[Rfam]
RNA sequence: GCGGGUAUGAUGUAAUGGUAGCUUGUCAGCUUCCCAAGCUGAACGCGCGGGUUCGAUUCCCGCUACCCGCU
Numbered sequence: 001g002c003g004g005g006u007a008u009g010a011u012g013u014a015a016u017g018g019u020a021g022c023u024u025g026u027c028a029g030c031u032u033c034c035c036a037a038g039c040u041g042a043a044c045g046c047g048c049g050g051g052u053u054c055g056a057u058u059c060c061c062g063c064u065a066c067c068c069g070c071u
Stems, first nucleotide, its partner, number of pairs: 001070007010024001012022002026042005047063005
Shown here is a 71-nucleotide sequence from Mesorhizobium sp. Root157, a member of the family "tRNA". It is annotated as a transfer RNA. The family's consensus secondary structure is taken from published work.